Nucleotides: 181
Base pairs, nucleotide, nucleotide: 006176007175008174009173010172011171016083017082018081019080020079023076024075032068033067034066035065036064037063038062087117088116089115090114091113093111095109097107118145119144120143121142122141123140124139126138127137128136129135147166148165149164150163151162152161153160
Number, partner (000 for none) and nucleotide at each position: 001000a002000g003000u004000g005000a006176g007175g008174a009173u010172a011171g012000a013000g014000g015000c016083g017082c018081a019080a020079a021000g022000a023076c024075c025000a026000u027000u028000a029000g030000u031000a032068c033067g034066c035065a036064g037063u038062u039000u040000g041000a042000g043000g044000a045000u046000g047000a048000u049000g050000a051000g052000g053000u054000c055000c056000u057000a058000g059000g060000a061000c062038g063037a064036u065035u066034g067033u068032g069000g070000a071000a072000a073000g074000g075024g076023g077000a078000a079020u080019u081018u082017g083016c084000c085000g086000a087117a088116g089115u090114g091113g092000a093111u094000g095109g096000a097107a098000u099000c100000u101000c102000a103000u104000u105000u106000u107097u108000c109095u110000a111093g112000a113091c114090c115089g116088c117087u118145g119144g120143u121142u122141c123140u124139g125000c126138u127137a128136u129135u130000g131000a132000a133000g134000a135129a136128a137127u138126a139124c140123a141122g142121a143120a144119c145118u146000g147166u148165c149164a150163u151162a152161u153160a154000g155000g156000a157000g158000a159000c160153u161152a162151u163150a164149u165148g166147g167000a168000g169000g170000g171011c172010u173009a174008u175007c176006u177000u178000a179000c180000g181000c

A member of the RNA family "Lysine riboswitch aptamer" from Bacillus sp. 7884-1, 181 nucleotides long. The family has 47 seed sequences and 3,224 matches in Rfam 15.1. Pairs were carried over by alignment from the consensus structure, which is taken from published work. Lineage of the source: Bacteria > Bacillota > Bacilli > Bacillaceae > Bacillus.